RNA sequence: UCACUUUCAAGAGUGGCAAAGUCUUUCCAUAUGUGUGUAUAUAUGCUACACAUACGGAAAGACUUUGCCACUCUUGAAAGUGA
Numbered sequence: 001u002c003a004c005u006u007u008c009a010a011g012a013g014u015g016g017c018a019a020a021g022u023c024u025u026u027c028c029a030u031a032u033g034u035g036u037g038u039a040u041a042u043a044u045g046c047u048a049c050a051c052a053u054a055c056g057g058a059a060a061g062a063c064u065u066u067g068c069c070a071c072u073c074u075u076g077a078a079a080g081u082g083a
Stems, first nucleotide, its partner, number of pairs: 001083007009075020030054005
The record is an 83-nucleotide sequence from Saimiri boliviensis, which matches "mir-3688 microRNA precursor family" in Rfam. Pairs were carried over by alignment from the consensus structure, which was predicted with RNAalifold. Taxonomically the source falls in Saimiri boliviensis (Eukaryota, Chordata, Euteleostomi, Mammalia). Rfam 15.1 lists 51 matches to the family in 24 species. Gene Ontology terms of the family: RISC complex and miRNA-mediated post-transcriptional gene silencing.